[Rfam]
A member of the RNA family "Saccharopolyspora sRNA 350" from Kribbella flavida, 509 nucleotides long. The family's consensus secondary structure was predicted with RNAfold. Rfam classes the family as an antisense RNA. For this family Rfam cites "Prediction and characterization of small non-coding RNAs related to secondary metabolites in Saccharopolyspora erythraea" (Liu et al., PLoS One, 2013). A search with the family's covariance model found it, with a score of 207 bits. The organism belongs to Kribbella flavida, within Bacteria.
RNA sequence: UUGACGGUGUACUGCCAGUGGUCCUCGGACUCGAGAAGCGCCUGGUAGGCGAAGUGGUCCCCGUCGGUCAGCGUCGACAGCACGGUCUCGUCGCCGUACUUGCCGGCGCCGAUCUUGUUCACCUUGCCGUGCGCGAUCAGGCAGAUCCGGUCCGCGGGCCGGCCGCGCUCGACCAGCACGUCGCCCGGCUGGUACUCCUGCUGCUCGAACCGGCCGGCCAGCUCGGUCAGCACCUCGACGUCGUCGAAGCUGCGCAGCAGGGCCAGCUCACACAGCUCCUGCGGGAUCACCCGCACCUCGGCGCCGGUCGUGGUGAAGGUGACCCGGCCGUCGCCGACGGCGUAACUCAGCCGCCGGUUCACCCGGUACGCGCCCCCGUUCACCUGCACCCAGGGCAGCAUCUUGAGCAACCACCGGGAGGUGAUGCCCUGCAUCUGCGGCUCGGACUUGGUCGUGGUCGCCAGGUUCCGCGCGGCCGCGGUUCCGAGGCUCAGUUGCGGGCGCUGCAC
Numbered sequence: 001u002u003g004a005c006g007g008u009g010u011a012c013u014g015c016c017a018g019u020g021g022u023c024c025u026c027g028g029a030c031u032c033g034a035g036a037a038g039c040g041c042c043u044g045g046u047a048g049g050c051g052a053a054g055u056g057g058u059c060c061c062c063g064u065c066g067g068u069c070a071g072c073g074u075c076g077a078c079a080g081c082a083c084g085g086u087c088u089c090g091u092c093g094c095c096g097u098a099c100u101u102g103c104c105g106g107c108g109c110c111g112a113u114c115u116u117g118u119u120c121a122c123c124u125u126g127c128c129g130u131g132c133g134c135g136a137u138c139a140g141g142c143a144g145a146u147c148c149g150g151u152c153c154g155c156g157g158g159c160c161g162g163c164c165g166c167g168c169u170c171g172a173c174c175a176g177c178a179c180g181u182c183g184c185c186c187g188g189c190u191g192g193u194a195c196u197c198c199u200g201c202u203g204c205u206c207g208a209a210c211c212g213g214c215c216g217g218c219c220a221g222c223u224c225g226g227u228c229a230g231c232a233c234c235u236c237g238a239c240g241u242c243g244u245c246g247a248a249g250c251u252g253c254g255c256a257g258c259a260g261g262g263c264c265a266g267c268u269c270a271c272a273c274a275g276c277u278c279c280u281g282c283g284g285g286a287u288c289a290c291c292c293g294c295a296c297c298u299c300g301g302c303g304c305c306g307g308u309c310g311u312g313g314u315g316a317a318g319g320u321g322a323c324c325c326g327g328c329c330g331u332c333g334c335c336g337a338c339g340g341c342g343u344a345a346c347u348c349a350g351c352c353g354c355c356g357g358u359u360c361a362c363c364c365g366g367u368a369c370g371c372g373c374c375c376c377c378g379u380u381c382a383c384c385u386g387c388a389c390c391c392a393g394g395g396c397a398g399c400a401u402c403u404u405g406a407g408c409a410a411c412c413a414c415c416g417g418g419a420g421g422u423g424a425u426g427c428c429c430u431g432c433a434u435c436u437g438c439g440g441c442u443c444g445g446a447c448u449u450g451g452u453c454g455u456g457g458u459c460g461c462c463a464g465g466u467u468c469c470g471c472g473c474g475g476c477c478g479c480g481g482u483u484c485c486g487a488g489g490c491u492c493a494g495u496u497g498c499g500g501g502c503g504c505u506g507c508a509c
Base pairs, nucleotide, nucleotide: 006390007389008388009387010386011385014328015327018324019322021320022319023318025316026315032313034311037308041307042306045305048302050300051299052298054233055232058229061226062225063224065111066110067109068108076103078102079100080099082097083096084095085094086093117222118221119220122217123216127212129210130209131206133204134203135202139199140198141197143196144195154189155188157186158185160183162177165174235295240290241289243287244286245285251281252280254278256277257276258275260271262269329342330341331340332339352378353377356374357373360372362370391431392430393429394428395427396426397425399423400422401421403418404417407415437476438475440473443470444469445468446467447465448464449463450462451461452460478507481502482501484499487496488495